RNA sequence: UGAAAGCUAUGACGAGUCUUGAAAAUUAUAUUAGCAUGUCAGACUUGGAAGAUGUUGUGGCAUUAACGAGAAUAUGUUUCAUCUGAGCAAUGA
Numbered sequence: 001u002g003a004a005a006g007c008u009a010u011g012a013c014g015a016g017u018c019u020u021g022a023a024a025a026u027u028a029u030a031u032u033a034g035c036a037u038g039u040c041a042g043a044c045u046u047g048g049a050a051g052a053u054g055u056u057g058u059g060g061c062a063u064u065a066a067c068g069a070g071a072a073u074a075u076g077u078u079u080c081a082u083c084u085g086a087g088c089a090a091u092g093a
Base pairs, nucleotide, nucleotide: 001093003091006088007087051064052063053062054061
RNA: Small nucleolar RNA R64/Z200 family